[Rfam]
RNA sequence: UUUCCGGGCGGGAUAUCAUCAUAUACUGUAAGUUCACGAUGAGACACUACAGUAUAGAUGAUGUACUCCCCCGGGCCC
Numbered sequence: 001u002u003u004c005c006g007g008g009c010g011g012g013a014u015a016u017c018a019u020c021a022u023a024u025a026c027u028g029u030a031a032g033u034u035c036a037c038g039a040u041g042a043g044a045c046a047c048u049a050c051a052g053u054a055u056a057g058a059u060g061a062u063g064u065a066c067u068c069c070c071c072c073g074g075g076c077c078c
Stems, first nucleotide, its partner, number of pairs: 007070002010067002013064008022056009032045003
The record is a 78-nucleotide RNA from Crypturellus undulatus, which matches "mir-144 microRNA precursor family" in Rfam. A search with the family's covariance model found it, with a score of 94 bits. Pairs were carried over by alignment from the consensus structure, which was predicted with RNAalifold. Its family is annotated with RISC complex and miRNA-mediated post-transcriptional gene silencing in the Gene Ontology.